Notes: This 96-nucleotide RNA sequence from Streptococcus uberis belongs to the Rfam family "Purine riboswitch aptamer". A search with the family's covariance model found it, with a score of 59 bits.
RNA sequence: ACAAAAAUUGAAUAAACUACUUAUUUAUACUGUGAAUUGGCGCAGUGUUUCUACAAGACACCGUAAUGUCUAACAAUAAGUAAGCUAAAAAGCUUG
Numbered sequence: 001a002c003a004a005a006a007a008u009u010g011a012a013u014a015a016a017c018u019a020c021u022u023a024u025u026u027a028u029a030c031u032g033u034g035a036a037u038u039g040g041c042g043c044a045g046u047g048u049u050u051c052u053a054c055a056a057g058a059c060a061c062c063g064u065a066a067u068g069u070c071u072a073a074c075a076a077u078a079a080g081u082a083a084g085c086u087a088a089a090a091a092g093c094u095u096g
Base pairs, nucleotide, nucleotide: 018082019081020080021079022078023077024076025075029046030045031044032043033042034041056071057070058069059068060067